[Rfam]
RNA sequence: CUUCACGGCGCCGAGCAGCAGCGGCCGGUCCUUCGGCCGGUCCUGUCCGUAGGCGGCCAUGAGGGCGUGGGCCUC
Numbered sequence: 001c002u003u004c005a006c007g008g009c010g011c012c013g014a015g016c017a018g019c020a021g022c023g024g025c026c027g028g029u030c031c032u033u034c035g036g037c038c039g040g041u042c043c044u045g046u047c048c049g050u051a052g053g054c055g056g057c058c059a060u061g062a063g064g065g066c067g068u069g070g071g072c073c074u075c
Stems, first nucleotide, its partner, number of pairs: 015025002031071003038065001044059002047056003
Shown here is a 75-nucleotide RNA from Streptomyces chattanoogensis, a member of the family "ASpks TB sRNA". The source organism's lineage runs through Bacteria, Actinomycetes, Kitasatosporales, Streptomycetaceae and Streptomyces. Rfam classes the family as an antisense RNA.